[Rfam]
RNA sequence: AUACAAAGUAGAGGUUGCGUCGAUCAUCAGUAGCCGGCCGGAUGUUGCAGGAACAGAGGAAGGCCGAUGAAAGGGAGAGACGCCGAAGAUUCAUGCAGAACUGCCUGCGUGCUUCUGGGCAUAUGGUGAAGAACCAUAUGACUAUCAUCUGUGCAGGAUGGGGAGCUACGAAAGAA
Numbered sequence: 001a002u003a004c005a006a007a008g009u010a011g012a013g014g015u016u017g018c019g020u021c022g023a024u025c026a027u028c029a030g031u032a033g034c035c036g037g038c039c040g041g042a043u044g045u046u047g048c049a050g051g052a053a054c055a056g057a058g059g060a061a062g063g064c065c066g067a068u069g070a071a072a073g074g075g076a077g078a079g080a081c082g083c084c085g086a087a088g089a090u091u092c093a094u095g096c097a098g099a100a101c102u103g104c105c106u107g108c109g110u111g112c113u114u115c116u117g118g119g120c121a122u123a124u125g126g127u128g129a130a131g132a133a134c135c136a137u138a139u140g141a142c143u144a145u146c147a148u149c150u151g152u153g154c155a156g157g158a159u160g161g162g163g164a165g166c167u168a169c170g171a172a173a174g175a176a
Stems, first nucleotide, its partner, number of pairs: 008169004017083005024076002033068001035066005087116003092111007117143002120140008145161006
RNA: Lysine riboswitch aptamer
Organism: butyrate-producing bacterium SM4/1